[Rfam]
RNA sequence: UCCGAUAAGGGCAAAACUGGAGUAAUCCAGUGACGCAAAGCUGCGGGUGCGUGGGAAACCACGGAUAGCCGGGCUACCGAAG
Numbered sequence: 001u002c003c004g005a006u007a008a009g010g011g012c013a014a015a016a017c018u019g020g021a022g023u024a025a026u027c028c029a030g031u032g033a034c035g036c037a038a039a040g041c042u043g044c045g046g047g048u049g050c051g052u053g054g055g056a057a058a059c060c061a062c063g064g065a066u067a068g069c070c071g072g073g074c075u076a077c078c079g080a081a082g
Base pairs, nucleotide, nucleotide: 001082003079004078011036012035016031017030018029019028020027021026034068039075040074041073042072044071045070046069047066048065

A member of the RNA family "c-di-GMP-I-GGC riboswitch aptamer" from Syntrophotalea carbinolica, 82 nucleotides long.